[Rfam]
RNA: MIR5534 microRNA precursor family
Organism: Oryza glumipatula
RNA sequence: AACUUUAGCGCCUAGAUGAUAACAGCUAGAAUGGCCGCGGCGAUGGAGGAUUGCCCCCCCCACCCCGAUGAGGCUGCCAUUCUAGCUGUUGUCGUCGAGGCACUAAAGU
Numbered sequence: 001a002a003c004u005u006u007a008g009c010g011c012c013u014a015g016a017u018g019a020u021a022a023c024a025g026c027u028a029g030a031a032u033g034g035c036c037g038c039g040g041c042g043a044u045g046g047a048g049g050a051u052u053g054c055c056c057c058c059c060c061c062a063c064c065c066c067g068a069u070g071a072g073g074c075u076g077c078c079a080u081u082c083u084a085g086c087u088g089u090u091g092u093c094g095u096c097g098a099g100g101c102a103c104u105a106a107a108g109u
Stems, first nucleotide, its partner, number of pairs: 002109007010101004015096021037074002041070002044067003048063001